RNA sequence: AAAAACCUGUAAAUUCAAUAUAUUGCAGGAUACGUGUAGGCCU
Numbered sequence: 001a002a003a004a005a006c007c008u009g010u011a012a013a014u015u016c017a018a019u020a021u022a023u024u025g026c027a028g029g030a031u032a033c034g035u036g037u038a039g040g041c042c043u
Stems, first nucleotide, its partner, number of pairs: 004031001006029001008027005
Overview:
A member of the RNA family "ES036 (CssrF) sRNA" from Shigella boydii, 43 nucleotides long. It is annotated as a small RNA. Differentially expressed under several chemical stress conditions. Also identified in Shigella as CssrF. A search with the family's covariance model found it, with a score of 42 bits. Taxonomically the source falls in Shigella boydii (Bacteria, Pseudomonadati, Gammaproteobacteria, Enterobacteriaceae).